[Rfam]
RNA sequence: AGGAUGAUAGCCACUUGGAGUCAUACCGGUUAGAGGCUUAUAUUCAUAUUGUUUAUUUGACUGCCUUGAUCCUACUCGGACAGGGACAGAAGG
Numbered sequence: 001a002g003g004a005u006g007a008u009a010g011c012c013a014c015u016u017g018g019a020g021u022c023a024u025a026c027c028g029g030u031u032a033g034a035g036g037c038u039u040a041u042a043u044u045c046a047u048a049u050u051g052u053u054u055a056u057u058u059g060a061c062u063g064c065c066u067u068g069a070u071c072c073u074a075c076u077c078g079g080a081c082a083g084g085g086a087c088a089g090a091a092g093g
Stems, first nucleotide, its partner, number of pairs: 002027002004024005011018001061089003064085005070080003